Shown here is a 154-nucleotide RNA sequence, a member of the family "SAM riboswitch aptamer (S box leader)". The family's consensus secondary structure is taken from published work. Rfam 15.1 lists 9,625 matches to the family in 4,158 species.

RNA sequence: GGCUCAUCCAGAGGGGCAGAGGGAACGGCCCGUUGAAGCCCCGGCAACCGGCGUCGCACGACGAUCCGCCCAGACCUGCGCCUUCCGCGCGGCGAGGACGUCGACGAACACGGUGCCAAUUCCGGCCCGCCACCUCCGGCGGGACAGAUGAGGA
Numbered sequence: 001g002g003c004u005c006a007u008c009c010a011g012a013g014g015g016g017c018a019g020a021g022g023g024a025a026c027g028g029c030c031c032g033u034u035g036a037a038g039c040c041c042c043g044g045c046a047a048c049c050g051g052c053g054u055c056g057c058a059c060g061a062c063g064a065u066c067c068g069c070c071c072a073g074a075c076c077u078g079c080g081c082c083u084u085c086c087g088c089g090c091g092g093c094g095a096g097g098a099c100g101u102c103g104a105c106g107a108a109c110a111c112g113g114u115g116c117c118a119a120u121u122c123c124g125g126c127c128c129g130c131c132a133c134c135u136c137c138g139g140c141g142g143g144a145c146a147g148a149u150g151a152g153g154a
Stems, first nucleotide, its partner, number of pairs: 003152006013042005021031003026124003043117004048113002050109001121146001126143006